Shown here is a 171-nucleotide sequence from Ellagibacter isourolithinifaciens, a member of the family "FMN riboswitch aptamer (RFN element)".
It scores 99 bits against the family's covariance model.
The source organism's lineage runs through Bacteria, Bacillati, Actinomycetota, Eggerthellales and Ellagibacter.
RNA sequence: AUUCUGUUUCAGGGCGGGGUGAGAUUCCCCACUGGCGGUAACCAGAAGGCGAGCAUGUCAAGCUGGAAGUCCGCGACCCGAGCAGAUGAGGCGCCCCAGUGCUUCGUUCGCUUGGCUGAUCCGGUGAGAAUCCGGGACCAACGGUUACAGUCCGGAUGGAAGAGGCAGAGA
Numbered sequence: 001a002u003u004c005u006g007u008u009u010c011a012g013g014g015c016g017g018g019g020u021g022a023g024a025u026u027c028c029c030c031a032c033u034g035g036c037g038g039u040a041a042c043c044a045g046a047a048g049g050c051g052a053g054c055a056u057g058u059c060a061a062g063c064u065g066g067a068a069g070u071c072c073g074c075g076a077c078c079c080g081a082g083c084a085g086a087u088g089a090g091g092c093g094c095c096c097c098a099g100u101g102c103u104u105c106g107u108u109c110g111c112u113u114g115g116c117u118g119a120u121c122c123g124g125u126g127a128g129a130a131u132c133c134g135g136g137a138c139c140a141a142c143g144g145u146u147a148c149a150g151u152c153c154g155g156a157u158g159g160a161a162g163a164g165g166c167a168g169a170g171a
Base pairs, nucleotide, nucleotide: 003169004168005167006166007165008164009163010162017029018028019027031151032150033140034139035074036073037072038071069138070137078115079114080113081112082111083110120136121135122134123133124132142154143153144152